[Rfam]
RNA sequence: CUUUUUGCAGUAGCAGCCUGAAAAUGGCUGAUGGCUGGUGACUUAUUGGUCACCAGCCU
Numbered sequence: 001c002u003u004u005u006u007g008c009a010g011u012a013g014c015a016g017c018c019u020g021a022a023a024a025u026g027g028c029u030g031a032u033g034g035c036u037g038g039u040g041a042c043u044u045a046u047u048g049g050u051c052a053c054c055a056g057c058c059u
Stems, first nucleotide, its partner, number of pairs: 014030005033058010

Overview: Rfam assigns this 59-nucleotide RNA sequence from Morganella morganii to the family "Pseudomonas sRNA P26". It scores 62 bits against the family's covariance model. This small RNA (sRNA) was computationally identified in the genome of the opportunistic pathogen Pseudomonas aeruginosa and its expression verified by northern blot analysis. P26 is conserved across many Gammaproteobacteria species and appears to be consistently located between the DNA directed RNA polymerase (beta subunit) and 50S ribosomal protein L7/L12 genes. A reference for the family is Livny et al. (2006), "Identification of 17 Pseudomonas aeruginosa sRNAs and prediction of sRNA-encoding genes in 10 diverse pathogens using the bioinformatic tool sRNAPredict2", Nucleic Acids Res.